Lysine riboswitch aptamer: a 192-nucleotide sequence from Pseudoalteromonas ruthenica. NCBI's taxonomy places the organism under Bacteria, Pseudomonadota, Gammaproteobacteria, Alteromonadales, Pseudoalteromonas. Rfam links the family to the GO term lysine biosynthetic process. Pairs were carried over by alignment from the consensus structure, which is taken from published work.
[Rfam]
RNA sequence: AGGGCUAGAAGAGGAGCGUCAUUCAGGUAGUUAUGGGAAGGAGAGCAAACUCCAAAGCACCAUAACGAGGGGAAUGUACGCCGAGAGACCUGUAAAGUUUGCUACUUACUGUCUCGGGCGCAUGGGUUGAAUCCCAGCGACUGUCACCAUUAGCGCUUAGCGCUAUGUUUUUGGUGGAGAGCUUCUGGUCUU
Numbered sequence: 001a002g003g004g005c006u007a008g009a010a011g012a013g014g015a016g017c018g019u020c021a022u023u024c025a026g027g028u029a030g031u032u033a034u035g036g037g038a039a040g041g042a043g044a045g046c047a048a049a050c051u052c053c054a055a056a057g058c059a060c061c062a063u064a065a066c067g068a069g070g071g072g073a074a075u076g077u078a079c080g081c082c083g084a085g086a087g088a089c090c091u092g093u094a095a096a097g098u099u100u101g102c103u104a105c106u107u108a109c110u111g112u113c114u115c116g117g118g119c120g121c122a123u124g125g126g127u128u129g130a131a132u133c134c135c136a137g138c139g140a141c142u143g144u145c146a147c148c149a150u151u152a153g154c155g156c157u158u159a160g161c162g163c164u165a166u167g168u169u170u171u172u173g174g175u176g177g178a179g180a181g182c183u184u185c186u187g188g189u190c191u192u
Base pairs, nucleotide, nucleotide: 006187007186008185009184010183011182016081017080018079019078023074030066031065032064033063034062035061036060085115086114087113088112089111092109093108094107095106116142117141119139120138121137123136124135125134126133144177145176146175147174148173149172